[Rfam]
RNA sequence: GUAAGCCCCAGCCCACAUGCCACGGUCAUCCACAGGUAAGAGCGGCCAAAUGCCGCCGCCGUGGCCCUUCCGCAAGGAAGGAGGGCUUGGGGCAGGAGGA
Numbered sequence: 001g002u003a004a005g006c007c008c009c010a011g012c013c014c015a016c017a018u019g020c021c022a023c024g025g026u027c028a029u030c031c032a033c034a035g036g037u038a039a040g041a042g043c044g045g046c047c048a049a050a051u052g053c054c055g056c057c058g059c060c061g062u063g064g065c066c067c068u069u070c071c072g073c074a075a076g077g078a079a080g081g082a083g084g085g086c087u088u089g090g091g092g093c094a095g096g097a098g099g100a
Stems, first nucleotide, its partner, number of pairs: 005093005011086004019065008040057001042056005066081001068079004

The record is a 100-nucleotide sequence, which matches "DUF1874 RNA" in Rfam. By type it is a cis-regulatory element. The base pairs follow the family's consensus structure, which is taken from published work.